[Rfam]
RNA sequence: UCGGGGGAUGCCGAAAACCCGCAACAGAGUAGGCA
Numbered sequence: 001u002c003g004g005g006g007g008a009u010g011c012c013g014a015a016a017a018c019c020c021g022c023a024a025c026a027g028a029g030u031a032g033g034c035a
Stems, first nucleotide, its partner, number of pairs: 002021004010034003
RNA: DUF805b RNA